RNA: Bacterial RNase P class A
RNA sequence: GAAGACGACUGGACAGUCGCCGGCCAUGUAAAUGGCGGGAGGAAAGUCCGGGCUCCAUAGAGCAAGGUGCCAGGUAAUGCCUGGGGGGCGUGAGCCCACGGAAAGUGCCGCAGAAAAUAUACCGCCUUCGGGUAAGGGUGAAAAGGUGCGGUAAGAGCGCACCGCAUCCCUGGUAACAGUGGAUGGCAGGGUAAACCCCACCUGGAGCAAGACCAAAUAGGGAUCCUUUGGCGUGGCUCGCGCUGGAUCCGGGUAGGUUGCUUGAGCGCGUCAGCGAUGGCGCGCCUAGAUGAAUGACUGUCCACGACAGAACCCGGCUUAUAGGUCGUCUUCACCU
Numbered sequence: 001g002a003a004g005a006c007g008a009c010u011g012g013a014c015a016g017u018c019g020c021c022g023g024c025c026a027u028g029u030a031a032a033u034g035g036c037g038g039g040a041g042g043a044a045a046g047u048c049c050g051g052g053c054u055c056c057a058u059a060g061a062g063c064a065a066g067g068u069g070c071c072a073g074g075u076a077a078u079g080c081c082u083g084g085g086g087g088g089c090g091u092g093a094g095c096c097c098a099c100g101g102a103a104a105g106u107g108c109c110g111c112a113g114a115a116a117a118u119a120u121a122c123c124g125c126c127u128u129c130g131g132g133u134a135a136g137g138g139u140g141a142a143a144a145g146g147u148g149c150g151g152u153a154a155g156a157g158c159g160c161a162c163c164g165c166a167u168c169c170c171u172g173g174u175a176a177c178a179g180u181g182g183a184u185g186g187c188a189g190g191g192u193a194a195a196c197c198c199c200a201c202c203u204g205g206a207g208c209a210a211g212a213c214c215a216a217a218u219a220g221g222g223a224u225c226c227u228u229u230g231g232c233g234u235g236g237c238u239c240g241c242g243c244u245g246g247a248u249c250c251g252g253g254u255a256g257g258u259u260g261c262u263u264g265a266g267c268g269c270g271u272c273a274g275c276g277a278u279g280g281c282g283c284g285c286c287u288a289g290a291u292g293a294a295u296g297a298c299u300g301u302c303c304a305c306g307a308c309a310g311a312a313c314c315c316g317g318c319u320u321a322u323a324g325g326u327c328g329u330c331u332u333c334a335c336c337u
Stems, first nucleotide, its partner, number of pairs: 001333010011322001012302007020039002023036005044320003048317005053207004060239004065203005070084005085099001086097004100198002105196002107192003122137002124133003145163006164187001165185005170179003211259004221250006230244005266285008